[Rfam]
RNA sequence: ACACGAGAAGGGAGGUGGUUCGGCAGAUGUAUGACAACCGGACGCGUGAGGUGGCUGCGGCCUAGCGGCCAAGGUCCCACGACACGUGGAGCCGGCGCCGCCGGCCAAUCCCAAGCAGUCACCCGAUCCGCGGGCCGCCGGUGUCGUCCGGCCGGCUCCCCCGGGGCGCAGCCCGCGCCCCAGGGGACCAAGGCCCGCGGAUCGCUGCUU
Numbered sequence: 001a002c003a004c005g006a007g008a009a010g011g012g013a014g015g016u017g018g019u020u021c022g023g024c025a026g027a028u029g030u031a032u033g034a035c036a037a038c039c040g041g042a043c044g045c046g047u048g049a050g051g052u053g054g055c056u057g058c059g060g061c062c063u064a065g066c067g068g069c070c071a072a073g074g075u076c077c078c079a080c081g082a083c084a085c086g087u088g089g090a091g092c093c094g095g096c097g098c099c100g101c102c103g104g105c106c107a108a109u110c111c112c113a114a115g116c117a118g119u120c121a122c123c124c125g126a127u128c129c130g131c132g133g134g135c136c137g138c139c140g141g142u143g144u145c146g147u148c149c150g151g152c153c154g155g156c157u158c159c160c161c162c163g164g165g166g167c168g169c170a171g172c173c174c175g176c177g178c179c180c181c182a183g184g185g186g187a188c189c190a191a192g193g194c195c196c197g198c199g200g201a202u203c204g205c206u207g208c209u210u
Stems, first nucleotide, its partner, number of pairs: 015058005060106001062104002065101002068098002073093003124204013137156006
This 210-nucleotide RNA from Streptomyces hoynatensis belongs to the Rfam family "Actinobacteria sRNA Ms_IGR-5". Taxonomically the source falls in Streptomyces (Bacteria, Actinomycetota, Actinomycetes, Streptomycetaceae). The base pairs follow the family's consensus structure. It is annotated as a small RNA.